[Rfam]
A member of the RNA family "Small nucleolar RNA snoR53Y" from Cicer arietinum, 75 nucleotides long. Lineage of the source: Eukaryota > Spermatophyta > Mesangiospermae > fabids > Cicer. A reference for the family is Brown et al. (2001), "Multiple snoRNA gene clusters from Arabidopsis", RNA. It scores 54 bits against the family's covariance model.

RNA sequence: AUUCCCAUUGAUGUUACUUUUAACCAUGCUAAUGCUGAAAUACAUGAUUAUCAAUAUCACUAAACUGAGGGGACU
Numbered sequence: 001a002u003u004c005c006c007a008u009u010g011a012u013g014u015u016a017c018u019u020u021u022a023a024c025c026a027u028g029c030u031a032a033u034g035c036u037g038a039a040a041u042a043c044a045u046g047a048u049u050a051u052c053a054a055u056a057u058c059a060c061u062a063a064a065c066u067g068a069g070g071g072g073a074c075u
Stems, first nucleotide, its partner, number of pairs: 002073004